[Rfam]
The record is a 114-nucleotide sequence from Varroa destructor, which matches "Potassium channel RNA editing signal" in Rfam. The organism belongs to Varroa, within Eukaryota. Gene Ontology term of the family: adenosine to inosine editing. The family's RNA type in Rfam is cis-regulatory element.
RNA sequence: GUUGGCUACGGAGACAUGGUGCCCAAAACAUACGUGGGCAUGUUAGUUGGUGCAUUAUGCGCCCUUGCUGGCGUGCUCACAAUUGGCUUGCCUGUUCCCGUUAUCGUUAGUAAU
Numbered sequence: 001g002u003u004g005g006c007u008a009c010g011g012a013g014a015c016a017u018g019g020u021g022c023c024c025a026a027a028a029c030a031u032a033c034g035u036g037g038g039c040a041u042g043u044u045a046g047u048u049g050g051u052g053c054a055u056u057a058u059g060c061g062c063c064c065u066u067g068c069u070g071g072c073g074u075g076c077u078c079a080c081a082a083u084u085g086g087c088u089u090g091c092c093u094g095u096u097c098c099c100g101u102u103a104u105c106g107u108u109a110g111u112a113a114u
Stems, first nucleotide, its partner, number of pairs: 001114002004111001008107004013102003018097002021095002037077004049063003